[Rfam]
RNA sequence: GCACCGGAAUCUUUCCCGCUCCUUGCUGCCUCGUGCUGGUGUGGGGACAGGUGGUGCCACAGUGUGAGCAGAGGAUAUCCAGACGGGCCGUCCAUUUGCCUUGGGGCCUGUCCCUACAACUCUGCCACAUUU
Numbered sequence: 001g002c003a004c005c006g007g008a009a010u011c012u013u014u015c016c017c018g019c020u021c022c023u024u025g026c027u028g029c030c031u032c033g034u035g036c037u038g039g040u041g042u043g044g045g046g047a048c049a050g051g052u053g054g055u056g057c058c059a060c061a062g063u064g065u066g067a068g069c070a071g072a073g074g075a076u077a078u079c080c081a082g083a084c085g086g087g088c089c090g091u092c093c094a095u096u097u098g099c100c101u102u103g104g105g106g107c108c109u110g111u112c113c114c115u116a117c118a119a120c121u122c123u124g125c126c127a128c129a130u131u132u
Base pairs, nucleotide, nucleotide: 001057002056003055004054005053013047014046015045016044017043018042019041021039022038068125069124070123071122072121073120082112083111084110085109086108087107088106092104093103094102